[Rfam]
RNA sequence: GAGCUUAUGAUGAUACUUUUAAUUAUCUUAGCGGAUUUCAGUGAGAUUGAAUCAAUGAUCUGAUUGUUACACACACUGAGGCUC
Numbered sequence: 001g002a003g004c005u006u007a008u009g010a011u012g013a014u015a016c017u018u019u020u021a022a023u024u025a026u027c028u029u030a031g032c033g034g035a036u037u038u039c040a041g042u043g044a045g046a047u048u049g050a051a052u053c054a055a056u057g058a059u060c061u062g063a064u065u066g067u068u069a070c071a072c073a074c075a076c077u078g079a080g081g082c083u084c
Base pairs, nucleotide, nucleotide: 001084002083003082004081005080

Annotation: The family of this 84-nucleotide sequence from Lactuca sativa is "Small nucleolar RNA R11/Z151". The base pairs follow the family's consensus structure, which was predicted with PFOLD. Rfam classes the family as a C/D-box small nucleolar RNA. For this family Rfam cites "Identification of 66 box C/D snoRNAs in Arabidopsis thaliana: extensive gene duplications generated multiple isoforms predicting new ribosomal RNA 2'-O-methylation sites" (Barneche et al., J Mol Biol, 2001).